[Rfam]
RNA sequence: AACGCCUGUCGCAGAUCUCUCCCUCCCCUGGAGUGAUCCCCGGAGCAGGUACCCCUCCCCAGGUCCUGCUCCCCAGCCCCGCCGGCCCCCCCUGCCUGCGGGGCUUUUUA
Number, nucleotide and partner (000 for none) at each position: 001a000002a000003c000004g012005c000006c011007u000008g000009u000010c000011g006012c004013a000014g038015a037016u036017c035018u000019c033020u032021c031022c030023c000024u000025c000026c000027c000028c000029u000030g022031g021032a020033g019034u000035g017036a016037u015038c014039c000040c000041c000042g072043g071044a070045g069046c068047a067048g066049g065050u000051a064052c063053c062054c000055c000056u000057c000058c000059c000060c000061a000062g053063g052064u051065c049066c048067u047068g046069c045070u044071c043072c042073c000074c000075a105076g104077c103078c102079c101080c100081g099082c098083c000084g096085g095086c094087c000088c000089c000090c000091c000092c000093u000094g086095c085096c084097u000098g082099c081100g080101g079102g078103g077104c076105u075106u000107u000108u000109u000110a000
Xanthomonadaceae sRNA sX13: a 110-nucleotide RNA from Aerolutibacter daejeonensis. On this family, see Schmidtke et al., Nucleic Acids Res 2011: "Genome-wide transcriptome analysis of the plant pathogen Xanthomonas identifies sRNAs with putative virulence functions". It is annotated as a small RNA. Taxonomically the source falls in Aerolutibacter daejeonensis (Bacteria, Pseudomonadota, Lysobacterales, Lysobacteraceae). The base pairs follow the family's consensus structure, which was predicted with CMfinder.